[Rfam]
RNA sequence: UCGAGGUUUUAAGUGAUGAGAUACCAAAUGCAACAUAGAGUCAAGCUCAGAGUUUCAAAAGAAAACAGAGACGAGAAUUGCUAAUAGUUUCUGAUUGAUCUUGA
Numbered sequence: 001u002c003g004a005g006g007u008u009u010u011a012a013g014u015g016a017u018g019a020g021a022u023a024c025c026a027a028a029u030g031c032a033a034c035a036u037a038g039a040g041u042c043a044a045g046c047u048c049a050g051a052g053u054u055u056c057a058a059a060a061g062a063a064a065a066c067a068g069a070g071a072c073g074a075g076a077a078u079u080g081c082u083a084a085u086a087g088u089u090u091c092u093g094a095u096u097g098a099u100c101u102u103g104a
Stems, first nucleotide, its partner, number of pairs: 001104006
Shown here is a 104-nucleotide RNA from Hansenula anomala, a member of the family "Small nucleolar RNA snR66". The pairing is the family consensus, mapped onto this sequence. Rfam links the family to the GO terms nucleolus and RNA processing. NCBI's taxonomy places the organism under Eukaryota, Ascomycota, Saccharomycetes, Wickerhamomycetaceae, Hansenula. Rfam classes the family as a C/D-box small nucleolar RNA.